[Rfam]
RNA: Lysine riboswitch aptamer
Organism: Mesobacillus zeae
RNA sequence: AGUGAAGGUAGAGGUGCGGACUUUAAGAGUAAGGACCCGGAGAACAAUGAGAUUCUUUGAGGGGUACUGAAAGGGAAGUCUGCCGAAGCCGGGAAAGCCUCAUUGCUUUUUUGGCUGGUCUUGCAUUGAAUAAAUGCCCGACUGUCAAGAUCUUUGAUCUUGGAGAGCUAUCUCACUG
Dot-bracket structure: .....((((((....(((((((((.......((.((((.......................)))).))......)))))))))...((((((((((((......))))))))))))((((..(((((.....)))))..)))).(((((((.....)))))))....)))))).....